This 82-nucleotide RNA from Haemonchus contortus belongs to the Rfam family "mir-46/mir-47/mir-281 microRNA precursor family". Lineage of the source: Eukaryota > Metazoa > Ecdysozoa > Strongyloidea > Haemonchus. Its family is annotated with miRNA-mediated post-transcriptional gene silencing and RISC complex in the Gene Ontology. The family's consensus secondary structure was predicted with RNAalifold. For this family Rfam cites "An abundant class of tiny RNAs with probable regulatory roles in Caenorhabditis elegans" (Lau et al., Science, 2001).
[Rfam]
RNA sequence: GGAUACGGUAGCUGAAGAGAGCCGUCCGUUGACAGUUCACUAUGGACGCUGUCAUGGAGUCGCUCUCUUCAGACUCCUAGAU
Numbered sequence: 001g002g003a004u005a006c007g008g009u010a011g012c013u014g015a016a017g018a019g020a021g022c023c024g025u026c027c028g029u030u031g032a033c034a035g036u037u038c039a040c041u042a043u044g045g046a047c048g049c050u051g052u053c054a055u056g057g058a059g060u061c062g063c064u065c066u067c068u069u070c071a072g073a074c075u076c077c078u079a080g081a082u
Base pairs, nucleotide, nucleotide: 014070015069016068017067018066020064021063022062025058026057027056028055031053032052033051035049036048